[Rfam]
The record is a 463-nucleotide part of an RNA from Oryctes borbonicus, which matches "Eukaryotic large subunit ribosomal RNA" in Rfam. The source organism's lineage runs through Eukaryota, Ecdysozoa, Neuropteroidea, Scarabaeiformia and Oryctes.

RNA sequence: GACCGGUCGUUGCGAUAGUAAUCCUGCUCAGUACGAGAGGAACCGCAGGUUCGGACAUUUGGUUCACGCACUCGCUCGAGCGGGCGGUGGUGCGAAGCUACCAUCCGUGGGAUUAUGCCUGAACGCCUCUAAGGCCGUAUCCUUUCUAGUCAAAGGUGGCAACGAUACCCUUAGGAGUUCCGAGAGUCGAAAGGCUCAAAACAAUGUGACUUUAUUAGGCGGUCGACGUUCGCGUCGGCCGUCGCACGAGCCCUCGUUUGCCGCAUGGAGCAACCGACUGACGGCGGGAUCUCAUCGCUACGUUUCGUCGGCUCCUAGCGGUCGAUCACGGGUACCGCUCAGUUCGAUGUCGGAACUUGGAAUUGUCUGCAGACGACUUACGUACCUGGCGGGGUGUUGUACUCGGUAGAGCAGUUUCCACGCUGCGAUCUGUUGAGACUCUGCCCCUUGCUUGGGGAUUCGU
Numbered sequence: 001g002a003c004c005g006g007u008c009g010u011u012g013c014g015a016u017a018g019u020a021a022u023c024c025u026g027c028u029c030a031g032u033a034c035g036a037g038a039g040g041a042a043c044c045g046c047a048g049g050u051u052c053g054g055a056c057a058u059u060u061g062g063u064u065c066a067c068g069c070a071c072u073c074g075c076u077c078g079a080g081c082g083g084g085c086g087g088u089g090g091u092g093c094g095a096a097g098c099u100a101c102c103a104u105c106c107g108u109g110g111g112a113u114u115a116u117g118c119c120u121g122a123a124c125g126c127c128u129c130u131a132a133g134g135c136c137g138u139a140u141c142c143u144u145u146c147u148a149g150u151c152a153a154a155g156g157u158g159g160c161a162a163c164g165a166u167a168c169c170c171u172u173a174g175g176a177g178u179u180c181c182g183a184g185a186g187u188c189g190a191a192a193g194g195c196u197c198a199a200a201a202c203a204a205u206g207u208g209a210c211u212u213u214a215u216u217a218g219g220c221g222g223u224c225g226a227c228g229u230u231c232g233c234g235u236c237g238g239c240c241g242u243c244g245c246a247c248g249a250g251c252c253c254u255c256g257u258u259u260g261c262c263g264c265a266u267g268g269a270g271c272a273a274c275c276g277a278c279u280g281a282c283g284g285c286g287g288g289a290u291c292u293c294a295u296c297g298c299u300a301c302g303u304u305u306c307g308u309c310g311g312c313u314c315c316u317a318g319c320g321g322u323c324g325a326u327c328a329c330g331g332g333u334a335c336c337g338c339u340c341a342g343u344u345c346g347a348u349g350u351c352g353g354a355a356c357u358u359g360g361a362a363u364u365g366u367c368u369g370c371a372g373a374c375g376a377c378u379u380a381c382g383u384a385c386c387u388g389g390c391g392g393g394g395u396g397u398u399g400u401a402c403u404c405g406g407u408a409g410a411g412c413a414g415u416u417u418c419c420a421c422g423c424u425g426c427g428a429u430c431u432g433u434u435g436a437g438a439c440u441c442u443g444c445c446c447c448u449u450g451c452u453u454g455g456g457g458a459u460u461c462g463u
Stems, first nucleotide, its partner, number of pairs: 006166008016148003021051001023049005052107004060100003067094005072087006109143003117135004177356007360461005365381002369377001386454001388452004392446003396439002404432003408429001411426005